[Rfam]
RNA sequence: CGCAGUUCGCUGCACUGCGUUCGACUGAUGCGGCAAGUCGGUAGCCUGGGUCUGCAAGGCUACGGCGCAAUUUGCCGCGCUGACCCGCCCCGUUCGCCCCGCAUCCUCGUGCGAACAGCCACCGCCAACGCGGUGGUCGAUGC
Numbered sequence: 001c002g003c004a005g006u007u008c009g010c011u012g013c014a015c016u017g018c019g020u021u022c023g024a025c026u027g028a029u030g031c032g033g034c035a036a037g038u039c040g041g042u043a044g045c046c047u048g049g050g051u052c053u054g055c056a057a058g059g060c061u062a063c064g065g066c067g068c069a070a071u072u073u074g075c076c077g078c079g080c081u082g083a084c085c086c087g088c089c090c091c092g093u094u095c096g097c098c099c100c101g102c103a104u105c106c107u108c109g110u111g112c113g114a115a116c117a118g119c120c121a122c123c124g125c126c127a128a129c130g131c132g133g134u135g136g137u138c139g140a141u142g143c
Base pairs, nucleotide, nucleotide: 011035012034017031018030019029021028022027041063042062043061044060045059046058049085050084051083052082064081065080066079067078068077111143112142113141118137119136120135121134122133123132124131125130

This 143-nucleotide sequence belongs to the Rfam family "radC RNA". The family has 148 seed sequences and 500 matches in Rfam 15.1. Pairs were carried over by alignment from the consensus structure, which is taken from published work.